[Rfam]
RNA sequence: AAAAGGCACGUAAAAUGUUGCAAAAAAAUGCAUUGCAAUGGUAACGUUUUACGAGCCUUAA
Numbered sequence: 001a002a003a004a005g006g007c008a009c010g011u012a013a014a015a016u017g018u019u020g021c022a023a024a025a026a027a028a029u030g031c032a033u034u035g036c037a038a039u040g041g042u043a044a045c046g047u048u049u050u051a052c053g054a055g056c057c058u059u060a061a
Stems, first nucleotide, its partner, number of pairs: 003059003007055001009053013
RNA: Drosophila rox2 ncRNA
Organism: Drosophila persimilis